Description: Rfam assigns this 96-nucleotide RNA from Halorhabdus tiamatea to the family "S15-Halobacteria ribosomal protein leader". The family is grouped with related families in Rfam's "Ribosomal Protein S15 Leader clan".
RNA sequence: ACUGGGAACACACGACCGCAAAUCUGACGCGUCGCGCAGGUGUCACAGACACUUUCGGCCUCUUUCGCCGUGCGCGACUUGGGAUUGCGGACGUGU
Numbered sequence: 001a002c003u004g005g006g007a008a009c010a011c012a013c014g015a016c017c018g019c020a021a022a023u024c025u026g027a028c029g030c031g032u033c034g035c036g037c038a039g040g041u042g043u044c045a046c047a048g049a050c051a052c053u054u055u056c057g058g059c060c061u062c063u064u065u066c067g068c069c070g071u072g073c074g075c076g077a078c079u080u081g082g083g084a085u086u087g088c089g090g091a092c093g094u095g096u
Stems, first nucleotide, its partner, number of pairs: 010096004016090006024083002031078007